[Rfam]
RNA sequence: CGGAUAGGCUCUUUUAUUAAUGAAGGGUGGUUCGCCACCUGAGGCAGAUUAUUCAAGAGGAAUAGAAAAUGGCUUUAAACGCUGAACAGAAAGCAGCAAUCGUAAAUGAGUACAAGGUAGGCGAG
Numbered sequence: 001c002g003g004a005u006a007g008g009c010u011c012u013u014u015u016a017u018u019a020a021u022g023a024a025g026g027g028u029g030g031u032u033c034g035c036c037a038c039c040u041g042a043g044g045c046a047g048a049u050u051a052u053u054c055a056a057g058a059g060g061a062a063u064a065g066a067a068a069a070u071g072g073c074u075u076u077a078a079a080c081g082c083u084g085a086a087c088a089g090a091a092a093g094c095a096g097c098a099a100u101c102g103u104a105a106a107u108g109a110g111u112a113c114a115a116g117g118u119a120g121g122c123g124a125g
Stems, first nucleotide, its partner, number of pairs: 008028005052078002057076004